The record is a 476-nucleotide RNA from Pseudogymnoascus sp. VKM F-4513, which matches "RNase MRP" in Rfam. The literature on the family includes a 2005 paper in Nucleic Acids Res by Piccinelli et al., "Identification and analysis of ribonuclease P and MRP RNA in a broad range of eukaryotes".
RNA sequence: UCCUCGUUCAAAGGAUCGCAGUCGAAGCACACAAACGGAGCAGACCUCGUGUCUCUCAGCCCUUCAUGGGCUAGUCAAUGCUUUGGGAGAAAGUCCCCGGACGACCUUCACCUUGUGAAGGAACGCGGAAACGCGCCGCCAUAGAAGCACUGCGGCUUCUUUUUAUUUCUCCUCUCCUUCCUUUCCCACGCCGACCUUCGUCGCCGCUCGUACUCGCAUUCCGGACGUUUGAUUGCUGCUUCUGGGUGAGGGAGAGACAAUAUGGAUGAAGAUAUGAGUCCGCGCUCUCCUGAUCCUAGCUGUCGGUAGAGCACUUGAAACGAUUGCGGGGAGGCGGGGAAGUUUCCUCGGUCUGGGUUGGGGCUUAUGGGAGGGGGGAGGCUUUCGUCGAGAGUGAUAGUUAUGCGAUUGCCCUCUUGGUCUGCCUCGCGGUUGGCCCGGGGGGUAACUCGAUGGGGCUUAUUCUUGAGACGAGG
Numbered sequence: 001u002c003c004u005c006g007u008u009c010a011a012a013g014g015a016u017c018g019c020a021g022u023c024g025a026a027g028c029a030c031a032c033a034a035a036c037g038g039a040g041c042a043g044a045c046c047u048c049g050u051g052u053c054u055c056u057c058a059g060c061c062c063u064u065c066a067u068g069g070g071c072u073a074g075u076c077a078a079u080g081c082u083u084u085g086g087g088a089g090a091a092a093g094u095c096c097c098c099g100g101a102c103g104a105c106c107u108u109c110a111c112c113u114u115g116u117g118a119a120g121g122a123a124c125g126c127g128g129a130a131a132c133g134c135g136c137c138g139c140c141a142u143a144g145a146a147g148c149a150c151u152g153c154g155g156c157u158u159c160u161u162u163u164u165a166u167u168u169c170u171c172c173u174c175u176c177c178u179u180c181c182u183u184u185c186c187c188a189c190g191c192c193g194a195c196c197u198u199c200g201u202c203g204c205c206g207c208u209c210g211u212a213c214u215c216g217c218a219u220u221c222c223g224g225a226c227g228u229u230u231g232a233u234u235g236c237u238g239c240u241u242c243u244g245g246g247u248g249a250g251g252g253a254g255a256g257a258c259a260a261u262a263u264g265g266a267u268g269a270a271g272a273u274a275u276g277a278g279u280c281c282g283c284g285c286u287c288u289c290c291u292g293a294u295c296c297u298a299g300c301u302g303u304c305g306g307u308a309g310a311g312c313a314c315u316u317g318a319a320a321c322g323a324u325u326g327c328g329g330g331g332a333g334g335c336g337g338g339g340a341a342g343u344u345u346c347c348u349c350g351g352u353c354u355g356g357g358u359u360g361g362g363g364c365u366u367a368u369g370g371g372a373g374g375g376g377g378g379a380g381g382c383u384u385u386c387g388u389c390g391a392g393a394g395u396g397a398u399a400g401u402u403a404u405g406c407g408a409u410u411g412c413c414c415u416c417u418u419g420g421u422c423u424g425c426c427u428c429g430c431g432g433u434u435g436g437c438c439c440g441g442g443g444g445g446u447a448a449c450u451c452g453a454u455g456g457g458g459c460u461u462a463u464u465c466u467u468g469a470g471a472c473g474a475g476g
Stems, first nucleotide, its partner, number of pairs: 002476006008469004014410006022087001023085006038062001040060002043057002091461003095458004124135004278382003286378006295371004354361001412445006
Background: Rfam 15.1 lists 3,510 matches to the family in 2,315 species. The organism belongs to Pseudogymnoascus, within Eukaryota. The family's consensus secondary structure is taken from published work.